Shown here is a 151-nucleotide RNA sequence from Parahoeflea olei, a member of the family "Alphaproteobacterial sRNA ar7". The pairing is the family consensus, mapped onto this sequence. It is annotated as a small RNA. It scores 88 bits against the family's covariance model.

[Rfam]
Nucleotides: 151
Base pairs, nucleotide, nucleotide: 025060026059027058028057029056031054036050037049038048065104066103067102068101069100070099071098072097073096074095075094112147115145116144117143118142119141120140121139122138123137124136125135126134
Number, partner (000 for none) and nucleotide at each position: 001000u002000a003000c004000c005000g006000g007000c008000g009000a010000a011000u012000g013000a014000a015000u016000a017000a018000g019000c020000c021000g022000a023000u024000g025060u026059c027058u028057g029056g030000a031054u032000u033000u034000g035000c036050g037049g038048c039000u040000c041000g042000u043000c044000c045000c046000c047000c048038g049037c050036c051000g052000c053000c054031a055000c056029c057028c058027a059026g060025a061000c062000c063000g064000a065104g066103g067102a068101c069100a070099a071098g072097g073096g074095c075094c076000a077000u078000c079000c080000c081000c082000c083000c084000c085000g086000c087000c088000c089000c090000u091000u092000g093000c094075g095074g096073c097072c098071c099070u100069u101068g102067u103066c104065c105000g106000a107000c108000c109000a110000a111000u112147a113000g114000g115145c116144c117143g118142c119141c120140a121139u122138g123137a124136c125135c126134g127000u128000c129000c130000c131000c132000u133000c134126u135125g136124g137123u138122c139121a140120u141119g142118g143117c144116g145115g146000c147112u148000u149000u150000c151000u